[Rfam]
RNA sequence: AUGAAUAUUGGGCAAAACUGGUGAAAACCAGUGACGCAAAGCCAUGGGUCUAAAACAUUUGUCAAGAUUGCCAGGUUGCCAGG
Numbered sequence: 001a002u003g004a005a006u007a008u009u010g011g012g013c014a015a016a017a018c019u020g021g022u023g024a025a026a027a028c029c030a031g032u033g034a035c036g037c038a039a040a041g042c043c044a045u046g047g048g049u050c051u052a053a054a055a056c057a058u059u060u061g062u063c064a065a066g067a068u069u070g071c072c073a074g075g076u077u078g079c080c081a082g083g
Stems, first nucleotide, its partner, number of pairs: 012037002017032006040077004045073003048068003055062002
Dot-bracket structure: ...........((...((((((....))))))...))..((((.((((((....((....))...)))..)))))))......